[Rfam]
RNA: Bacterial RNase P class A
Organism: Barnesiella sp. WM24
RNA sequence: UGAGCAAGACGGUCGGUCGCUUGCCGACUUCGAGAGCGGCAAGAGGAAAGUCCGGGCAAUACAGGGCGCCAUGGUUGUUAACGGCAACCUGUCAGUGAUGGCAGAGUAGCGUGACAGAAAAUAACCGCCGUCAUUCGUGGCGGUAAGGGUGAAAAGGCGGGGUAAGAGCCCACCGGGUCCCACAGCGAUAUGGGAUGCCGCACGCCUCAUGGAUUGCAAGGUCAAGUAUACCGGCAUUUAAGGGUUGCCCGCCCAUUGCCGGGGGGUAGACUGCUCAAGCCCGGUGGCGACAUCGGGAUUAGAUAAAUGACCGACCGCGGCGGCAAUUGCUGCCGUCGCGACAUAACCCGGCUUACAGUCAUGCUCGACCC
Dot-bracket structure: ((((((.(((((((((((.(((((((..........)))))))....[[[.[[[[[((((...[[[[.((((((((((.....)))))(.((((....)))).)((..(((((...........(((((((((....)))))))..)).......((.(((.......))).)).(((((((.(....).)))))).)..))))))))))))))))...((((.......(((((......((((.]]]]))))...)))))......)))).......(((((((....)))))))...........)))))))...............................]]]]]]]].).))).))))))....
Numbered sequence: 001u002g003a004g005c006a007a008g009a010c011g012g013u014c015g016g017u018c019g020c021u022u023g024c025c026g027a028c029u030u031c032g033a034g035a036g037c038g039g040c041a042a043g044a045g046g047a048a049a050g051u052c053c054g055g056g057c058a059a060u061a062c063a064g065g066g067c068g069c070c071a072u073g074g075u076u077g078u079u080a081a082c083g084g085c086a087a088c089c090u091g092u093c094a095g096u097g098a099u100g101g102c103a104g105a106g107u108a109g110c111g112u113g114a115c116a117g118a119a120a121a122u123a124a125c126c127g128c129c130g131u132c133a134u135u136c137g138u139g140g141c142g143g144u145a146a147g148g149g150u151g152a153a154a155a156g157g158c159g160g161g162g163u164a165a166g167a168g169c170c171c172a173c174c175g176g177g178u179c180c181c182a183c184a185g186c187g188a189u190a191u192g193g194g195a196u197g198c199c200g201c202a203c204g205c206c207u208c209a210u211g212g213a214u215u216g217c218a219a220g221g222u223c224a225a226g227u228a229u230a231c232c233g234g235c236a237u238u239u240a241a242g243g244g245u246u247g248c249c250c251g252c253c254c255a256u257u258g259c260c261g262g263g264g265g266g267u268a269g270a271c272u273g274c275u276c277a278a279g280c281c282c283g284g285u286g287g288c289g290a291c292a293u294c295g296g297g298a299u300u301a302g303a304u305a306a307a308u309g310a311c312c313g314a315c316c317g318c319g320g321c322g323g324c325a326a327u328u329g330c331u332g333c334c335g336u337c338g339c340g341a342c343a344u345a346a347c348c349c350g351g352c353u354u355a356c357a358g359u360c361a362u363g364c365u366c367g368a369c370c371c
Stems, first nucleotide, its partner, number of pairs: 001367006008360003011356001012315007020043007048354003052351005057216004064250004069212005074088005089104001091102004105207002109205005125148002127144007156174002159171003176198001177196006184189001220272004231262005242254004280297007